The record is a 57-nucleotide sequence, which matches "Glutamine riboswitch aptamer (glnA leader)" in Rfam. Rfam links the family to the GO term glutamine binding. The literature on the family includes a 2011 paper in RNA Biol by Ames and Breaker, "Bacterial aptamers that selectively bind glutamine".
[Rfam]
RNA sequence: UUCGUUCAUUUUGAUUAAUUUCAAGACGGAAGUAGACAUAUGUCGAAGGAACGCGUG
Numbered sequence: 001u002u003c004g005u006u007c008a009u010u011u012u013g014a015u016u017a018a019u020u021u022c023a024a025g026a027c028g029g030a031a032g033u034a035g036a037c038a039u040a041u042g043u044c045g046a047a048g049g050a051a052c053g054c055g056u057g
Stems, first nucleotide, its partner, number of pairs: 003053005009026005029054001035044003